[Rfam]
Rfam assigns this 158-nucleotide sequence from Populus alba to the family "MIR2912 microRNA precursor family". Lineage of the source: Eukaryota > Euphyllophyta > fabids > Malpighiales > Populus. The family's consensus secondary structure was predicted with RNAalifold. Its family is annotated with miRNA-mediated post-transcriptional gene silencing and RISC complex in the Gene Ontology.
RNA sequence: UUUAGAACUCGAGAUAUGAGCUGAACACUAAACAAUGUCUGGGCUGCAUAAUAGAUUCAGACUUCCUCUUGUUUGCUAAGAUUUGAACUUCAAAAAUAGUAGCAUUGAGUCUUGGACCUCUUCAUGAAUGUCUUAGGCCUAUAUCUUAGCUUUCUAUC
Number, nucleotide and partner (000 for none) at each position: 001u000002u000003u156004a155005g154006a153007a152008c149009u148010c000011g147012a146013g145014a144015u143016a142017u141018g140019a000020g138021c136022u135023g134024a133025a000026c000027a131028c130029u000030a000031a000032a000033c000034a000035a125036u124037g123038u000039c000040u000041g121042g120043g119044c000045u116046g000047c000048a113049u000050a000051a110052u109053a000054g106055a105056u104057u000058c102059a000060g100061a000062c099063u098064u000065c000066c000067u000068c000069u092070u000071g000072u000073u087074u086075g000076c000077u000078a000079a000080g000081a000082u000083u000084u000085g000086a074087a073088c000089u000090u000091c000092a069093a000094a000095a000096a000097u000098a063099g062100u060101a000102g058103c000104a056105u055106u054107g000108a000109g052110u051111c000112u000113u048114g000115g000116a045117c000118c000119u043120c042121u041122u000123c037124a036125u035126g000127a000128a000129u000130g028131u027132c000133u024134u023135a022136g021137g000138c020139c000140u018141a017142u016143a015144u014145c013146u012147u011148a009149g008150c000151u000152u007153u006154c005155u004156a003157u000158c000